[Rfam]
RNA sequence: UGAUCCGCGGCGGGAGAGUUCCGCCGGUACAUCUGCGCGAAGCGCAGACAUCAAGUGGGCGCCGAAGGAGCAAACCCUCCCCGGGAAUCUCUCAGGCCCAUGUACCGCCGUGGCGAG
Numbered sequence: 001u002g003a004u005c006c007g008c009g010g011c012g013g014g015a016g017a018g019u020u021c022c023g024c025c026g027g028u029a030c031a032u033c034u035g036c037g038c039g040a041a042g043c044g045c046a047g048a049c050a051u052c053a054a055g056u057g058g059g060c061g062c063c064g065a066a067g068g069a070g071c072a073a074a075c076c077c078u079c080c081c082c083g084g085g086a087a088u089c090u091c092u093c094a095g096g097c098c099c100a101u102g103u104a105c106c107g108c109c110g111u112g113g114c115g116a117g
Base pairs, nucleotide, nucleotide: 006112007111008110009109010108011107012106013105020059021058022057023056061097062096063095064093065092068091069090070089075083